[Rfam]
RNA sequence: CCCCCAUCCAUGUGUGUAGGACUUCAAAGGAUCAUCAUUAAAUUUGGUACGGAUCUUUAAAAAAGUUAUCACAUGGGUAUGAAACUUGACUUUUAUAGAGAUCUGUAUCAAAUUUAAUGGUGAUCCUUUGGGGUCCUACACACAUGGAUGGAAG
Number, nucleotide and partner (000 for none) at each position: 001c000002c000003c000004c151005c150006a149007u148008c147009c146010a145011u144012g143013u142014g000015u140016g139017u138018a137019g136020g135021a134022c133023u132024u131025c130026a129027a128028a127029g000030g125031a124032u123033c000034a121035u120036c119037a118038u117039u116040a115041a114042a113043u112044u111045u110046g109047g108048u107049a106050c105051g104052g103053a102054u101055c100056u099057u098058u097059a096060a000061a094062a093063a092064a091065g090066u089067u088068a087069u082070c081071a080072c000073a078074u000075g000076g000077g000078u073079a000080u071081g070082a069083a000084a000085c000086u000087u068088g067089a066090c065091u064092u063093u062094u061095a000096u059097a058098g057099a056100g055101a054102u053103c052104u051105g050106u049107a048108u047109c046110a045111a044112a043113u042114u041115u040116a039117a038118u037119g036120g035121u034122g000123a032124u031125c030126c000127u028128u027129u026130g025131g024132g023133g022134u021135c020136c019137u018138a017139c016140a015141c000142a013143c012144a011145u010146g009147g008148a007149u006150g005151g004152a000153a000154g000

The record is a 154-nucleotide sequence from Amborella trichopoda, which matches "MIR8565 microRNA precursor family" in Rfam. Rfam links the family to the GO terms RISC complex and miRNA-mediated post-transcriptional gene silencing.